RNA sequence: GACAUCGGCUAACAGCGGCCAUUUUGGUUGAGGAAAAUCCGCACUAGCACGAACUGAGAUGUUCGUAGUGUUCAUGUCAAGUUUAAUAAACUUGAGCCUAGACGACAAGUGCCACAGAGACGAGAAUUGUGAAACGGGUAAACUCCAUGAGCUAGAAACUAAAAUUUUGGUAUAGGAAUUUUAAAUAGGAAAAUGAACUUAUUUAAAAAAUUACUCAUGUAAUUAGAUAAAUUGUUAGCACCUUGAAUAAAGGUACAGAAAGCGGUUUAUAGAU
Numbered sequence: 001g002a003c004a005u006c007g008g009c010u011a012a013c014a015g016c017g018g019c020c021a022u023u024u025u026g027g028u029u030g031a032g033g034a035a036a037a038u039c040c041g042c043a044c045u046a047g048c049a050c051g052a053a054c055u056g057a058g059a060u061g062u063u064c065g066u067a068g069u070g071u072u073c074a075u076g077u078c079a080a081g082u083u084u085a086a087u088a089a090a091c092u093u094g095a096g097c098c099u100a101g102a103c104g105a106c107a108a109g110u111g112c113c114a115c116a117g118a119g120a121c122g123a124g125a126a127u128u129g130u131g132a133a134a135c136g137g138g139u140a141a142a143c144u145c146c147a148u149g150a151g152c153u154a155g156a157a158a159c160u161a162a163a164a165u166u167u168u169g170g171u172a173u174a175g176g177a178a179u180u181u182u183a184a185a186u187a188g189g190a191a192a193a194u195g196a197a198c199u200u201a202u203u204u205a206a207a208a209a210a211u212u213a214c215u216c217a218u219g220u221a222a223u224u225a226g227a228u229a230a231a232u233u234g235u236u237a238g239c240a241c242c243u244u245g246a247a248u249a250a251a252g253g254u255a256c257a258g259a260a261a262g263c264g265g266u267u268u269a270u271a272g273a274u
Stems, first nucleotide, its partner, number of pairs: 004274003007270001008239007016030006035268003039265004044155005049066006072150005077095006096103001097101001104145002109143002111139003159175003179208007209224006241253004
Shown here is a 274-nucleotide sequence from Mycoplasmopsis pullorum, a member of the family "Bacterial RNase P class B".
About the family: Ribonuclease P (RNase P) is a ubiquitous endoribonuclease, found in archaea, bacteria and eukarya as well as chloroplasts and mitochondria. Its best characterised activity is the generation of mature 5'-ends of tRNAs by cleaving the 5'-leader elements of precursor-tRNAs. Cellular RNase Ps are ribonucleoproteins.
The family's RNA type in Rfam is ribozyme.
A search with the family's covariance model found it, with a score of 201 bits.
Pairs were carried over by alignment from the consensus structure, which is taken from published work.
For this family Rfam cites "Ribonuclease P: unity and diversity in a tRNA processing ribozyme" (Frank and Pace, Annu Rev Biochem, 1998).